The record is a 67-nucleotide RNA from Pipistrellus kuhlii, which matches "mir-9256 microRNA precursor family" in Rfam. Lineage of the source: Eukaryota > Craniata > Dipnotetrapodomorpha > Laurasiatheria > Pipistrellus.
[Rfam]
RNA sequence: AUAUACACUGAGUGGCCAGAGUAUUAUGUGUUCACAGAACAUAAUACUCUGGCCACUCAGUGUAUAU
Numbered sequence: 001a002u003a004u005a006c007a008c009u010g011a012g013u014g015g016c017c018a019g020a021g022u023a024u025u026a027u028g029u030g031u032u033c034a035c036a037g038a039a040c041a042u043a044a045u046a047c048u049c050u051g052g053c054c055a056c057u058c059a060g061u062g063u064a065u066a067u
Stems, first nucleotide, its partner, number of pairs: 004064014019049010